[Rfam]
RNA sequence: GGGGCAUCAAUGAGGAGAUAAUUAAAUGUUAUCCUUGCACUUUGAUUGUCAGUGAAGAAACAUAGUGGGCAAUGUUCUCUCUGAGAUGCUC
Numbered sequence: 001g002g003g004g005c006a007u008c009a010a011u012g013a014g015g016a017g018a019u020a021a022u023u024a025a026a027u028g029u030u031a032u033c034c035u036u037g038c039a040c041u042u043u044g045a046u047u048g049u050c051a052g053u054g055a056a057g058a059a060a061c062a063u064a065g066u067g068g069g070c071a072a073u074g075u076u077c078u079c080u081c082u083g084a085g086a087u088g089c090u091c
Base pairs, nucleotide, nucleotide: 002091003090004089005088006087007086008085

Rfam assigns this 91-nucleotide sequence from Corchorus capsularis to the family "Small nucleolar RNA snoR26". Gene Ontology terms of the family: nucleolus and RNA processing. Pairs were carried over by alignment from the consensus structure, which was predicted with WAR. The family has 8 seed sequences and 611 matches in Rfam 15.1. On this family, see Brown et al., RNA 2001: "Multiple snoRNA gene clusters from Arabidopsis". The family's RNA type in Rfam is C/D-box small nucleolar RNA.